[Rfam]
RNA sequence: GUCCACCGACGGCCGAGAUCACGUCAGCGAACCGGGGACCCAAUCAGUCCCGGGGUGAAUCGGUACGGCGUCGACACGUCAUCCGCGUCGACAUCGUCCGUAGGGCUUCUUCCCGCCCGAACCCGUCAGCUAACCCGGUAGGCGGUCGAGGAAGAAGGA
Numbered sequence: 001g002u003c004c005a006c007c008g009a010c011g012g013c014c015g016a017g018a019u020c021a022c023g024u025c026a027g028c029g030a031a032c033c034g035g036g037g038a039c040c041c042a043a044u045c046a047g048u049c050c051c052g053g054g055g056u057g058a059a060u061c062g063g064u065a066c067g068g069c070g071u072c073g074a075c076a077c078g079u080c081a082u083c084c085g086c087g088u089c090g091a092c093a094u095c096g097u098c099c100g101u102a103g104g105g106c107u108u109c110u111u112c113c114c115g116c117c118c119g120a121a122c123c124c125g126u127c128a129g130c131u132a133a134c135c136c137g138g139u140a141g142g143c144g145g146u147c148g149a150g151g152a153a154g155a156a157g158g159a
Stems, first nucleotide, its partner, number of pairs: 012143003019030002031139006041052001053124003061100003103118004
A member of the RNA family "c-di-AMP riboswitch aptamer (ydaO/yuaA leader)" from Jatrophihabitans endophyticus, 159 nucleotides long. Taxonomically the source falls in Jatrophihabitans (Bacteria, Bacillati, Jatrophihabitantales, Jatrophihabitantaceae). Pairs were carried over by alignment from the consensus structure. It scores 77 bits against the family's covariance model.